[Rfam]
RNA sequence: GCCUGCGCUGGGCUUGUUUUCAGUUGCCUGCGGCUAAGUAGUAAGACUCAGGCAGCUAAAGCAAGUCUGAGGCAGGA
Numbered sequence: 001g002c003c004u005g006c007g008c009u010g011g012g013c014u015u016g017u018u019u020u021c022a023g024u025u026g027c028c029u030g031c032g033g034c035u036a037a038g039u040a041g042u043a044a045g046a047c048u049c050a051g052g053c054a055g056c057u058a059a060a061g062c063a064a065g066u067c068u069g070a071g072g073c074a075g076g077a
Base pairs, nucleotide, nucleotide: 003075004074006072010068011067012066013065014064015063016062017061018060019059020058022057023056024055025054026053027052028051029050030049032047
RNA: mir-1788 microRNA precursor family
Organism: Phrynocephalus forsythii